RNA sequence: CAAACCCAACACAAUGAAAGCCCUGCCUCUCUUCCAUCCAUGCGGUUCCUGGACCGCGCCUGUUGGAAUCAGGUUUCAGCUUCAUAG
Numbered sequence: 001c002a003a004a005c006c007c008a009a010c011a012c013a014a015u016g017a018a019a020g021c022c023c024u025g026c027c028u029c030u031c032u033u034c035c036a037u038c039c040a041u042g043c044g045g046u047u048c049c050u051g052g053a054c055c056g057c058g059c060c061u062g063u064u065g066g067a068a069u070c071a072g073g074u075u076u077c078a079g080c081u082u083c084a085u086a087g
Stems, first nucleotide, its partner, number of pairs: 035066001039062002041058007
RNA: BsrC